[Rfam]
The record is a 57-nucleotide RNA from Hyalangium minutum, which matches "L17-Actino-Proteobacteria ribosomal protein leader" in Rfam. The base pairs follow the family's consensus structure, which is taken from published work.
RNA sequence: GCGGACCUCGGUGUCGAGUCCGCUCUUCCCACCCGGUACCUGAUACGGCCGGUGUGG
Numbered sequence: 001g002c003g004g005a006c007c008u009c010g011g012u013g014u015c016g017a018g019u020c021c022g023c024u025c026u027u028c029c030c031a032c033c034c035g036g037u038a039c040c041u042g043a044u045a046c047g048g049c050c051g052g053u054g055u056g057g
Stems, first nucleotide, its partner, number of pairs: 001023006029057003033052005
Dot-bracket structure: ((((((...........)))))).....(((.(((((..........)))))..)))